[Rfam]
This 106-nucleotide RNA sequence from Exiguobacterium artemiae belongs to the Rfam family "SAM riboswitch aptamer (S box leader)". Taxonomically the source falls in Exiguobacterium artemiae (Bacteria, Bacillati, Bacilli, Exiguobacterium). It is one of the family's seed sequences.
RNA sequence: UUCUUAUCAAGAGAAGUCGAGGGAACGGCCCGAAGACACUUCAGCAACCCCGCGCGUAGCGGAAGGUGCUACUUCCUAAAAGGAAUUUUUCCUUUGAAGAUAAGAG
Numbered sequence: 001u002u003c004u005u006a007u008c009a010a011g012a013g014a015a016g017u018c019g020a021g022g023g024a025a026c027g028g029c030c031c032g033a034a035g036a037c038a039c040u041u042c043a044g045c046a047a048c049c050c051c052g053c054g055c056g057u058a059g060c061g062g063a064a065g066g067u068g069c070u071a072c073u074u075c076c077u078a079a080a081a082g083g084a085a086u087u088u089u090u091c092c093u094u095u096g097a098a099g100a101u102a103a104g105a106g
Stems, first nucleotide, its partner, number of pairs: 001106008013042005021031003027076002043070004048066002050062004074098001079095006